[Rfam]
RNA sequence: AAAAAGCCCGCUUUGCGUCGGCAUAAGCGGGCUUCAUGUGCGGGGAAAGCUGGAGCGCUGGCGGCAUAGGGAAAUCCCACCAUUCGCUUUAGCUGUUUUGGGUUGCCCCGCGUCCGCAAGCUGAUAUCAAAUCGACGCAAGUCCCGAUGCUAGCACAUACGCGC
Numbered sequence: 001a002a003a004a005a006g007c008c009c010g011c012u013u014u015g016c017g018u019c020g021g022c023a024u025a026a027g028c029g030g031g032c033u034u035c036a037u038g039u040g041c042g043g044g045g046a047a048a049g050c051u052g053g054a055g056c057g058c059u060g061g062c063g064g065c066a067u068a069g070g071g072a073a074a075u076c077c078c079a080c081c082a083u084u085c086g087c088u089u090u091a092g093c094u095g096u097u098u099u100g101g102g103u104u105g106c107c108c109c110g111c112g113u114c115c116g117c118a119a120g121c122u123g124a125u126a127u128c129a130a131a132u133c134g135a136c137g138c139a140a141g142u143c144c145c146g147a148u149g150c151u152a153g154c155a156c157a158u159a160c161g162c163g164c
Stems, first nucleotide, its partner, number of pairs: 004034009014023003039139004048088003054084002060078002063076002089124006100109003110117002